Source information
The family of this 256-nucleotide RNA from Oncorhynchus tshawytscha is "RNase MRP". The organism belongs to Oncorhynchus, within Eukaryota. RNase MRP is an enzymatically active ribonucleoprotein with two distinct roles in eukaryotes. In mitochondria it plays a direct role in the initiation of mitochondrial DNA replication. In the nucleus it is involved in precursor rRNA processing, where it cleaves the internal transcribed spacer 1 between 18S and 5.8S rRNAs. Despite distinct functions, RNase MRP has been shown to be evolutionarily related to RNase P. Like eukaryotic RNase P, RNase MRP is not catalytically active without associated protein subunits. Its family is annotated with ribonuclease MRP activity, ribonuclease MRP complex and rRNA processing in the Gene Ontology. It is annotated as a ribozyme. For this family Rfam cites "Secondary structure of RNase MRP RNA as predicted by phylogenetic comparison" (Schmitt et al., FASEB J, 1993).
[Rfam]
RNA sequence: GGGCAUUCAGAAGGCUUGUUGACUAGGCUACUCGCUGAGAACGAAGUUUCUCCAUUCUCGCCUAGGGGAAAGUCCCCGGACACAUGGCAGAAAGUGCCCUGCGUUGGUUCGCAGUUUACUCGGCUUGUGCGUUACCAUUUGUGGCUAAGAUGUUCCAUGGGACGGAGCUUGGUGCUCACGAGUCUCCUUUGUCAGUGCGAUAGAAAUGCAAGUAAUACUAGCGCAUGAACAGAACGGGGCUCAUUCUCAGAAUGCA
Numbered sequence: 001g002g003g004c005a006u007u008c009a010g011a012a013g014g015c016u017u018g019u020u021g022a023c024u025a026g027g028c029u030a031c032u033c034g035c036u037g038a039g040a041a042c043g044a045a046g047u048u049u050c051u052c053c054a055u056u057c058u059c060g061c062c063u064a065g066g067g068g069a070a071a072g073u074c075c076c077c078g079g080a081c082a083c084a085u086g087g088c089a090g091a092a093a094g095u096g097c098c099c100u101g102c103g104u105u106g107g108u109u110c111g112c113a114g115u116u117u118a119c120u121c122g123g124c125u126u127g128u129g130c131g132u133u134a135c136c137a138u139u140u141g142u143g144g145c146u147a148a149g150a151u152g153u154u155c156c157a158u159g160g161g162a163c164g165g166a167g168c169u170u171g172g173u174g175c176u177c178a179c180g181a182g183u184c185u186c187c188u189u190u191g192u193c194a195g196u197g198c199g200a201u202a203g204a205a206a207u208g209c210a211a212g213u214a215a216u217a218c219u220a221g222c223g224c225a226u227g228a229a230c231a232g233a234a235c236g237g238g239g240c241u242c243a244u245u246c247u248c249a250g251a252a253u254g255c256a
Stems, first nucleotide, its partner, number of pairs: 003255006010248002014213006023065006037052005071241002074239004086098004099114005124182006143169003152163004215226002218223001